[Rfam]
RNA sequence: UACUUUUUGAGAACCAUUUGAAUUGCUACUUGAUUCAAAUGGUUCUCAAAAA
Numbered sequence: 001u002a003c004u005u006u007u008u009g010a011g012a013a014c015c016a017u018u019u020g021a022a023u024u025g026c027u028a029c030u031u032g033a034u035u036c037a038a039a040u041g042g043u044u045c046u047c048a049a050a051a052a
Stems, first nucleotide, its partner, number of pairs: 007049019